[Rfam]
RNA sequence: GGUUGGGUUUGAUCGGAGACAGGGACGAGGCAGAGCAUGGGUAGGGGGCCAUCAACAGAAUUCCAAAUUUGAUUUCUGUUUGCUCGCUCACAAAAUGGAGGGACUCACCACAAACACACUCAGGCGUUGUUGCUCCCUCCCCUGCACUGCCUCUUCCCUGGCUCCUCACCGUCUCCCAUCC
Numbered sequence: 001g002g003u004u005g006g007g008u009u010u011g012a013u014c015g016g017a018g019a020c021a022g023g024g025a026c027g028a029g030g031c032a033g034a035g036c037a038u039g040g041g042u043a044g045g046g047g048g049c050c051a052u053c054a055a056c057a058g059a060a061u062u063c064c065a066a067a068u069u070u071g072a073u074u075u076c077u078g079u080u081u082g083c084u085c086g087c088u089c090a091c092a093a094a095a096u097g098g099a100g101g102g103a104c105u106c107a108c109c110a111c112a113a114a115c116a117c118a119c120u121c122a123g124g125c126g127u128u129g130u131u132g133c134u135c136c137c138u139c140c141c142c143u144g145c146a147c148u149g150c151c152u153c154u155u156c157c158c159u160g161g162c163u164c165c166u167c168a169c170c171g172u173c174u175c176c177c178a179u180c181c
Base pairs, nucleotide, nucleotide: 016164017163018162020160021159022158023157024156025155028152029151030150031149032148033147035145036144037143039141040140046135047134048133049132
The family of this 181-nucleotide sequence from Zea mays is "MIR408 microRNA precursor family". A search with the family's covariance model found it, with a score of 73 bits.